The family of this 114-nucleotide RNA sequence from Nomascus leucogenys is "Y RNA". Rfam 15.1 lists 26,986 matches to the family in 650 species. Pairs were carried over by alignment from the consensus structure, which is taken from published work. A search with the family's covariance model found it, with a score of 46 bits. Lineage of the source: Eukaryota > Theria > Primates > Simiiformes > Nomascus.

[Rfam]
RNA sequence: GGUCAGUAGGGAAAUAGUGAGUUAUCUCAACUGAUUGUUCACAGCAUCAGUUACAGAUAGAACUCCUUGUUCUCCUUUUCCUCCCUUCUCACUGCUGCACUUUACUAGUCUUAG
Numbered sequence: 001g002g003u004c005a006g007u008a009g010g011g012a013a014a015u016a017g018u019g020a021g022u023u024a025u026c027u028c029a030a031c032u033g034a035u036u037g038u039u040c041a042c043a044g045c046a047u048c049a050g051u052u053a054c055a056g057a058u059a060g061a062a063c064u065c066c067u068u069g070u071u072c073u074c075c076u077u078u079u080c081c082u083c084c085c086u087u088c089u090c091a092c093u094g095c096u097g098c099a100c101u102u103u104a105c106u107a108g109u110c111u112u113a114g
Base pairs, nucleotide, nucleotide: 001110002109003108005106006105007104008103010102011101015097016093017092018091019090020089021088046076049073050072

About the family: Y RNAs are components of the Ro ribonucleoprotein particle (Ro RNP), in association with Ro60 and La proteins. The Y RNAs and Ro60 and La proteins are well conserved, but the function of the Ro RNP is not known. In humans the RNA component can be one of four small RNAs -- hY1, hY3, hY4 and hY5. These small RNAs are predicted to fold into a conserved secondary structure containing three stem structures.